[Rfam]
RNA sequence: GCCCGGAUGAGCCUCGGUGGAGCGGGGUGCGGGCUUAAAACCGUAGCUGCUUAACGGUAGAGUGGUUCAAUUCCACCUUUCAGGC
Numbered sequence: 001g002c003c004c005g006g007a008u009g010a011g012c013c014u015c016g017g018u019g020g021a022g023c024g025g026g027g028u029g030c031g032g033g034c035u036u037a038a039a040a041c042c043g044u045a046g047c048u049g050c051u052u053a054a055c056g057g058u059a060g061a062g063u064g065g066u067u068c069a070a071u072u073c074c075a076c077c078u079u080u081c082a083g084g085c
Base pairs, nucleotide, nucleotide: 001085002084003083005081006080007079009077012027013026014025015024016023028045029044030043031042032041047060048059049058050057051056062076063075064074065073
The record is an 85-nucleotide RNA from Cyprinodon variegatus, which matches "Selenocysteine transfer RNA" in Rfam. Pairs were carried over by alignment from the consensus structure, which is taken from published work. It scores 50 bits against the family's covariance model.